[Rfam]
Small Cajal body specific RNA 6: a 274-nucleotide RNA from Rhinolophus ferrumequinum. Pairs were carried over by alignment from the consensus structure, which is taken from published work. Its family is annotated with RNA processing and nucleolus in the Gene Ontology. A search with the family's covariance model found it, with a score of 128 bits. A reference for the family is Darzacq et al. (2002), "Cajal body-specific small nuclear RNAs: a novel class of 2'-O-methylation and pseudouridylation guide RNAs", EMBO J. Lineage of the source: Eukaryota > Eumetazoa > Deuterostomia > Vertebrata > Rhinolophus. U88 is small Cajal body specific RNA (scaRNA). scaRNAs are a novel class of small nuclear RNAs which localise to the Cajal bodies. U88 is found associated with both fibrillarin and Gar1p and co-localises with coilin in Cajal bodies.

RNA sequence: GGUCGAUGAUGAUUGGUGAAAGGUCUGAUUGCACUUGAUGUCACAGUCCCUUCGCUGCCCUCAACUCCCAGCAGCCCAUUUUUUCUGCCUGUCACAUUUAAGUCAUGUGUGUGGGGUAAUGGCGCAGCUGAUAAUUUGGGAUUCUGUCAGCGUGUGUUUCUGCAAGUGAAUGGUUCACAGCUGACAACUGUCCAACAGCACCAGCUCUCAGGAGAUUGAUGAGCGGCAGCCAUGGGUGUGAUGGUGCAUGAUCUGAAGUUUUCAAUCUGAGACC
Dot-bracket structure: ((((.................................(.(((....(.((.(............((((((((.((............((((.(((((.........)))))))))........)).)))).......(.(((..(.......((((..(((.......)..))..)))).......)..)))).................))))........).)).).....................))).)................))))